[Rfam]
RNA sequence: GCCACAUGAAAGACAAGGUAGUGAGACGCGAAAGUCGCAUGAUCAUCUCACUACCCAUGUCUUUCAUGCAGAA
Numbered sequence: 001g002c003c004a005c006a007u008g009a010a011a012g013a014c015a016a017g018g019u020a021g022u023g024a025g026a027c028g029c030g031a032a033a034g035u036c037g038c039a040u041g042a043u044c045a046u047c048u049c050a051c052u053a054c055c056c057a058u059g060u061c062u063u064u065c066a067u068g069c070a071g072a073a
Base pairs, nucleotide, nucleotide: 008065009064010063011062012061013060014059015058017055018054020052021051022050023049024048025047026046028044
Shown here is a 73-nucleotide RNA from Cotesia congregata, a member of the family "mir-71 microRNA precursor family". Gene Ontology terms of the family: RISC complex and miRNA-mediated post-transcriptional gene silencing. The literature on the family includes a 2008 paper in PLoS One by Yu et al., "The silkworm (Bombyx mori) microRNAs and their expressions in multiple developmental stages". Pairs were carried over by alignment from the consensus structure, which was predicted with RNAalifold.